[Rfam]
RNA sequence: AGCGUGCACCGGGGUCAGUGAAAGUCUGAGCCGGCGGUUAAAGUCCGCGACCCGCAUUAGCGGUUGAGCUGGUGAAAUUCCAGCACCGACGGUUAAAGUCCGGAUGGGAGGAGCACGCC
Numbered sequence: 001a002g003c004g005u006g007c008a009c010c011g012g013g014g015u016c017a018g019u020g021a022a023a024g025u026c027u028g029a030g031c032c033g034g035c036g037g038u039u040a041a042a043g044u045c046c047g048c049g050a051c052c053c054g055c056a057u058u059a060g061c062g063g064u065u066g067a068g069c070u071g072g073u074g075a076a077a078u079u080c081c082a083g084c085a086c087c088g089a090c091g092g093u094u095a096a097a098g099u100c101c102g103g104a105u106g107g108g109a110g111g112a113g114c115a116c117g118c119c
Stems, first nucleotide, its partner, number of pairs: 003117005009111002016028003030099002032088002034048004043086002052063002068084005090102003
Shown here is a 119-nucleotide RNA sequence from Boudabousia tangfeifanii, a member of the family "FMN riboswitch aptamer (RFN element)".